[Rfam]
This 99-nucleotide sequence from Jaculus jaculus belongs to the Rfam family "Small nucleolar RNA SNORD16". The family has 5 seed sequences and 1,321 matches in Rfam 15.1. The family's consensus secondary structure was predicted with PFOLD. For this family Rfam cites "A novel small nucleolar RNA (U16) is encoded inside a ribosomal protein intron and originates by processing of the pre-mRNA" (Fragapane et al., EMBO J, 1993).

RNA sequence: UGCAAUGAUGUCAUAAUUUGUGUCUUACUCUGUUUGCAGCGACUGUUGCCUGCUGUCAGUAAGGUGGUUCAGAAGAUUGACGAAAAUUGUUACUGAACA
Numbered sequence: 001u002g003c004a005a006u007g008a009u010g011u012c013a014u015a016a017u018u019u020g021u022g023u024c025u026u027a028c029u030c031u032g033u034u035u036g037c038a039g040c041g042a043c044u045g046u047u048g049c050c051u052g053c054u055g056u057c058a059g060u061a062a063g064g065u066g067g068u069u070c071a072g073a074a075g076a077u078u079g080a081c082g083a084a085a086a087u088u089g090u091u092a093c094u095g096a097a098c099a
Base pairs, nucleotide, nucleotide: 001099002098021082022081023080024079030072031071032070040063041057042056043055045053
It is annotated as a C/D-box small nucleolar RNA. Lineage of the source: Eukaryota > Eumetazoa > Chordata > Mammalia > Jaculus.